[Rfam]
RNA sequence: UGAUAUGCGAUGAUGCGGUAGGUGGCUGCACUUUGAUGCAGGGAAUUACCGCGGAGUAUGUCCGAUUUUAAAACCGGGCGA
Dot-bracket structure: ..............(((.(((....(((((......)))))....))).)))......((((((.(......).)))))).